permuted transfer-messenger RNA: a 221-nucleotide sequence from Herbaspirillum seropedicae. The base pairs follow the family's consensus structure, which is taken from published work. It scores 108 bits against the family's covariance model.
RNA sequence: GCGCAACUUGAAGGCAAACAGCGUUUUGGACGGGGGUUCGAUUCCCCCCACCUCCACCAAAUGCCGCAAUGGAAGGGCGCUUGCCAUCCGGCAUCUGAAGGGGGUGACCUGGUUUCGACAAAGCGGCCAGUACCCGGAGACACACCACGUCAGGCGACCGACGUAAACAGCGCGAAAUCCUGAUUGCAAAUGAAUCGCAAUUUAUUGCUUACGGUACCUGA
Numbered sequence: 001g002c003g004c005a006a007c008u009u010g011a012a013g014g015c016a017a018a019c020a021g022c023g024u025u026u027u028g029g030a031c032g033g034g035g036g037u038u039c040g041a042u043u044c045c046c047c048c049c050a051c052c053u054c055c056a057c058c059a060a061a062u063g064c065c066g067c068a069a070u071g072g073a074a075g076g077g078c079g080c081u082u083g084c085c086a087u088c089c090g091g092c093a094u095c096u097g098a099a100g101g102g103g104g105u106g107a108c109c110u111g112g113u114u115u116c117g118a119c120a121a122a123g124c125g126g127c128c129a130g131u132a133c134c135c136g137g138a139g140a141c142a143c144a145c146c147a148c149g150u151c152a153g154g155c156g157a158c159c160g161a162c163g164u165a166a167a168c169a170g171c172g173c174g175a176a177a178u179c180c181u182g183a184u185u186g187c188a189a190a191u192g193a194a195u196c197g198c199a200a201u202u203u204a205u206u207g208c209u210u211a212c213g214g215u216a217c218c219u220g221a
Stems, first nucleotide, its partner, number of pairs: 001143001013134001022125003026121003032048005049106007148163004